[Rfam]
RNA sequence: UGUGAAGUUAUGGGUUACACACUGAUGGAAUCACAGCGUUAGGAGAUGCAGGCAAUAUUCAGUACCACUCUGGCGAAAAAAAUGCACAGGGACCACUCAAGUGCA
Numbered sequence: 001u002g003u004g005a006a007g008u009u010a011u012g013g014g015u016u017a018c019a020c021a022c023u024g025a026u027g028g029a030a031u032c033a034c035a036g037c038g039u040u041a042g043g044a045g046a047u048g049c050a051g052g053c054a055a056u057a058u059u060c061a062g063u064a065c066c067a068c069u070c071u072g073g074c075g076a077a078a079a080a081a082a083u084g085c086a087c088a089g090g091g092a093c094c095a096c097u098c099a100a101g102u103g104c105a
Base pairs, nucleotide, nucleotide: 004104006102021063022062023061024060025058026057027056031052032051036049037048038047039046040045